The record is a 70-nucleotide RNA sequence from Granulicella arctica, which matches "Fluoride riboswitch aptamer (crcB RNA motif)" in Rfam. A search with the family's covariance model found it, with a score of 37 bits. NCBI's taxonomy places the organism under Bacteria, Acidobacteriota, Terriglobia, Terriglobales, Granulicella.

RNA sequence: GACAACCUUGGCGAUGGGGUUCGCCGAUGAUGCCCGCCUUCCAGACGGCGCUGAUGACUCCUACCAUCUU
Dot-bracket structure: .........[[[[..((((((]]]]..............................)))))).........